[Rfam]
RNA: TPP riboswitch aptamer (THI element)
Organism: Bacillus cereus
RNA sequence: CGUUAUCACUGGGGGAGCCAUGCCGCUGAGAGGGAACACUUCGUUCCGACCCUUCGAACCUGUUAGUUAAUGCUAACGCAGGGAUUGUGCAAACGUCCGAAA
Numbered sequence: 001c002g003u004u005a006u007c008a009c010u011g012g013g014g015g016a017g018c019c020a021u022g023c024c025g026c027u028g029a030g031a032g033g034g035a036a037c038a039c040u041u042c043g044u045u046c047c048g049a050c051c052c053u054u055c056g057a058a059c060c061u062g063u064u065a066g067u068u069a070a071u072g073c074u075a076a077c078g079c080a081g082g083g084a085u086u087g088u089g090c091a092a093a094c095g096u097c098c099g100a101a102a
Base pairs, nucleotide, nucleotide: 007089008088009087011053012052013051014050017026018025033047034046035045036044037043059082060081061080062079063076064075065074066073
Dot-bracket structure: ......(((.((((..((......))......(((((.....)))))..)))).....((((((((......))))..))))....))).............